[Rfam]
RNA: Actinobacteria sRNA Ms_IGR-5
Organism: Microlunatus elymi
RNA sequence: ACACGGAAAGGAGGUGGUCCGAAGGAUGUAUGACUUACGGACAAGUGAGGUGACGGCUAGCUAGCCGCCCCAGGACAGGUCAGCUGGAUACGUUCCAGCGCGGAUGACUGGCCCGAGCGGCCGGCGAAUCCACAGCCAACACCCGAACCCGCGAGCGCCGGAUUUGUCCCCCGGCCGCGUACCUCCACCUCCUACGAGGAACCGAUCCUCAUGUUCGGUUGGGUACGACGACCAGCUCGCGGGUUUGUCCUGC
Numbered sequence: 001a002c003a004c005g006g007a008a009a010g011g012a013g014g015u016g017g018u019c020c021g022a023a024g025g026a027u028g029u030a031u032g033a034c035u036u037a038c039g040g041a042c043a044a045g046u047g048a049g050g051u052g053a054c055g056g057c058u059a060g061c062u063a064g065c066c067g068c069c070c071c072a073g074g075a076c077a078g079g080u081c082a083g084c085u086g087g088a089u090a091c092g093u094u095c096c097a098g099c100g101c102g103g104a105u106g107a108c109u110g111g112c113c114c115g116a117g118c119g120g121c122c123g124g125c126g127a128a129u130c131c132a133c134a135g136c137c138a139a140c141a142c143c144c145g146a147a148c149c150c151g152c153g154a155g156c157g158c159c160g161g162a163u164u165u166g167u168c169c170c171c172c173g174g175c176c177g178c179g180u181a182c183c184u185c186c187a188c189c190u191c192c193u194a195c196g197a198g199g200a201a202c203c204g205a206u207c208c209u210c211a212u213g214u215u216c217g218g219u220u221g222g223g224u225a226c227g228a229c230g231a232c233c234a235g236c237u238c239g240c241g242g243g244u245u246u247g248u249c250c251u252g253c
Base pairs, nucleotide, nucleotide: 013058014057015056017054018053060125061124062123064121065120067118068117070115073113074112144247145246146245147244148243149242150241151240152239153238154237155236156235158223159222